[Rfam]
RNA sequence: AGCAGAGUAGAUGUCUGCGCGUGAAGUGUCAACCGGACGGGGAGUUGCCGGUCGAACGAAAAGCGUAACCGCUUGCGGUGCAGAUGUCGCAUCCCGCUGCU
Numbered sequence: 001a002g003c004a005g006a007g008u009a010g011a012u013g014u015c016u017g018c019g020c021g022u023g024a025a026g027u028g029u030c031a032a033c034c035g036g037a038c039g040g041g042g043a044g045u046u047g048c049c050g051g052u053c054g055a056a057c058g059a060a061a062a063g064c065g066u067a068a069c070c071g072c073u074u075g076c077g078g079u080g081c082a083g084a085u086g087u088c089g090c091a092u093c094c095c096g097c098u099g100c101u
Stems, first nucleotide, its partner, number of pairs: 001101005010088010020077003026057002029055002032052005040094003044090001061074004
About this RNA: Shown here is a 101-nucleotide RNA sequence from Gehongia tenuis, a member of the family "THF (Tetrahydrofolate) riboswitch aptamer". Rfam describes the family as follows. Tetrahydrofolate (THF) riboswitch was first reported for Ames et al. as an RNA motif in 5' untranslated (5'-UTR)regions of folate transport and biosynthesis genes in Firmicutes genomes. Lineage of the source: Bacteria > Bacillati > Bacillota > Christensenellaceae > Gehongia.